[Rfam]
RNA sequence: AAAAUUUUUGGGCAAACCCGAUGAAAGUCGGGGACGCAAAGCUUCCGGCCUACGGCGUUAGAUCGCUAAGGUAGCGGGGUUGCCGGU
Numbered sequence: 001a002a003a004a005u006u007u008u009u010g011g012g013c014a015a016a017c018c019c020g021a022u023g024a025a026a027g028u029c030g031g032g033g034a035c036g037c038a039a040a041g042c043u044u045c046c047g048g049c050c051u052a053c054g055g056c057g058u059u060a061g062a063u064c065g066c067u068a069a070g071g072u073a074g075c076g077g078g079g080u081u082g083c084c085g086g087u
Base pairs, nucleotide, nucleotide: 012037013036017032018031019030020029021028022027040081041080042079043078045077046076047075048072049071050070055066056065057064
A member of the RNA family "c-di-GMP-I riboswitch aptamer" from Cognatundibacterium jejuense, 87 nucleotides long. Rfam describes the family as follows. GEMM was predicted in a large-scale screen for bacterial structured RNA regulatory elements. Lineage of the source: Bacteria > Pseudomonadati > Betaproteobacteria > Burkholderiales > Cognatundibacterium. Pairs were carried over by alignment from the consensus structure, which is taken from published work. It scores 81 bits against the family's covariance model.